[Rfam]
A member of the RNA family "Plastid-rps12 3UTR RNA" from Ananas comosus, 98 nucleotides long. The family has 1,299 seed sequences and 1,710 matches in Rfam 15.1. Pairs were carried over by alignment from the consensus structure, which was predicted with LocARNA. The source organism's lineage runs through Eukaryota, Streptophyta, Petrosaviidae, Bromelioideae and Ananas. The literature on the family includes a 2023 paper in Plant Commun by Richter et al., "Retrograde signaling in plants: A critical review focusing on the GUN pathway and beyond". It scores 84 bits against the family's covariance model. It is annotated as a cis-regulatory element. From the family's description: Plastid rpl20 is a non-coding RNA (ncRNA) recognised in plastids. It was found in the three prime untranslated region (3UTR) of rps12 gene, its 3UTR location sugest a role in transcript maduration.
Nucleotides: 098
Base pairs, nucleotide, nucleotide: 009024010023011022012021053088055086056085057079058078060076061075062074063073064072
Number, partner (000 for none) and nucleotide at each position: 001000g002000a003000u004000u005000u006000c007000c008000a009024u010023u011022g012021g013000u014000g015000u016000c017000a018000a019000g020000u021012c022011c023010a024009a025000u026000c027000g028000u029000c030000u031000a032000g033000a034000u035000u036000u037000g038000a039000a040000a041000u042000a043000u044000g045000a046000a047000g048000c049000a050000a051000u052000u053088u054000c055086c056085u057079a058078u059000u060076g061075g062074u063073a064072g065000c066000a067000a068000a069000u070000g071000a072064u073063u074062a075061u076060c077000c078058a079057u080000u081000a082000a083000g084000c085056g086055g087000a088053g089000g090000a091000a092000a093000u094000g095000g096000u097000a098000u